[Rfam]
Description: The record is an 87-nucleotide sequence from Quercus lobata, which matches "Small nucleolar RNA Z102/R77" in Rfam. A reference for the family is Barneche et al. (2001), "Identification of 66 box C/D snoRNAs in Arabidopsis thaliana: extensive gene duplications generated multiple isoforms predicting new ribosomal RNA 2'-O-methylation sites", J Mol Biol. Its Rfam clan is "SNORD44 clan".

RNA sequence: GAACGAGGUGAUGAAGAAUAUGUUUCCCUAUUGGUUUGAUUGCAGAUAUGAUGACAUCAAUCAUGUACUAGCUCUAGCUGAUCGUUC
Numbered sequence: 001g002a003a004c005g006a007g008g009u010g011a012u013g014a015a016g017a018a019u020a021u022g023u024u025u026c027c028c029u030a031u032u033g034g035u036u037u038g039a040u041u042g043c044a045g046a047u048a049u050g051a052u053g054a055c056a057u058c059a060a061u062c063a064u065g066u067a068c069u070a071g072c073u074c075u076a077g078c079u080g081a082u083c084g085u086u087c
Stems, first nucleotide, its partner, number of pairs: 002086004038058001041056002